A member of the RNA family "Actino-pnp RNA", 72 nucleotides long. It is annotated as a cis-regulatory element.
[Rfam]
RNA sequence: UCCGGUCCUCGGUAGUGGCUUACGGGAGUGCGUGAGUGCACCCGCACCCGUGGGCUUCGAUCGAAGACCGCC
Numbered sequence: 001u002c003c004g005g006u007c008c009u010c011g012g013u014a015g016u017g018g019c020u021u022a023c024g025g026g027a028g029u030g031c032g033u034g035a036g037u038g039c040a041c042c043c044g045c046a047c048c049c050g051u052g053g054g055c056u057u058c059g060a061u062c063g064a065a066g067a068c069c070g071c072c
Base pairs, nucleotide, nucleotide: 003070004069005068006067007066009064010063011062012061013060017056018055019054020053021052022051023050024049025048026047029046030045031044
It scores 63 bits against the family's covariance model. Pairs were carried over by alignment from the consensus structure, which is taken from published work.